[Rfam]
RNA sequence: CAUUGUGGUGGUUUUCUGCCUGGCGGAUCUGUGACAGUGUCAGAGCGGCCUCAACCUACCACAAAGAGUAUAAAGGAGAAGGACAGUCAUGAAAACUUUUCCAGAACUUUUCGUUUUCAGUUAUUCCAGCUCCUACAAGG
Numbered sequence: 001c002a003u004u005g006u007g008g009u010g011g012u013u014u015u016c017u018g019c020c021u022g023g024c025g026g027a028u029c030u031g032u033g034a035c036a037g038u039g040u041c042a043g044a045g046c047g048g049c050c051u052c053a054a055c056c057u058a059c060c061a062c063a064a065a066g067a068g069u070a071u072a073a074a075g076g077a078g079a080a081g082g083a084c085a086g087u088c089a090u091g092a093a094a095a096c097u098u099u100u101c102c103a104g105a106a107c108u109u110u111u112c113g114u115u116u117u118c119a120g121u122u123a124u125u126c127c128a129g130c131u132c133c134u135a136c137a138a139g140g
Base pairs, nucleotide, nucleotide: 005062006061007060008059009058010057011056022050023049024048026046028044029043030042031041075133076132077131078130081088082087105125106124
Small nucleolar RNA SNORA12: a 140-nucleotide RNA sequence from Platysternon megacephalum. The base pairs follow the family's consensus structure, which was predicted with RNAalifold. Rfam's curators write: U108 belongs to the H/ACA family of snoRNAs. The match comes from Rfam's covariance-model search (74 bits). Rfam links the family to the GO terms RNA processing and nucleolus.